[Rfam]
Nitrogen stress-induced RNA 1: a 52-nucleotide sequence from Elainella sp. C42_A2020_010. The pairing is the family consensus, mapped onto this sequence. Rfam classes the family as a small RNA. On this family, see Ionescu et al., J Mol Biol 2010: "Heterocyst-specific transcription of NsiR1, a non-coding RNA encoded in a tandem array of direct repeats in cyanobacteria". A search with the family's covariance model found it, with a score of 52 bits.
RNA sequence: UGGUAGAUGCACCCUGAUUCAUACCCCCGGUCGCAAGCUGGGGGUUUUUCUU
Numbered sequence: 001u002g003g004u005a006g007a008u009g010c011a012c013c014c015u016g017a018u019u020c021a022u023a024c025c026c027c028c029g030g031u032c033g034c035a036a037g038c039u040g041g042g043g044g045u046u047u048u049u050c051u052u
Stems, first nucleotide, its partner, number of pairs: 002013003024044008